[Rfam]
About this RNA:
The record is a 201-nucleotide sequence from Parafrankia colletiae, which matches "c-di-AMP riboswitch aptamer (ydaO/yuaA leader)" in Rfam.
RNA sequence: CCGGGUGGCACGCCGAAUCCCGCCCCGCCCGGCGCACAUCAGAUCUGAGGGUGGGAGCGGGGGACCCAAGUGUUCCCGGGCGUUGUUUCUGGACGUCCUUGGGGUGAAGCCGUCAGCGCUUUGCGGCGCGGAUAUGUGUGCGGCCGGGCGAUUCCCAGCCCGAACCCGACAGCUAACUUCGUAGGCGUGGGGAGGGACAUU
Dot-bracket structure: ..........((((...((((((((.......................))))))))((((((....((((...........................))))(((.....((((..........................))))..((((........))))...))).........)))))).))))..............

Rfam links the family to the GO terms regulation of gene expression and cyclic-di-AMP binding.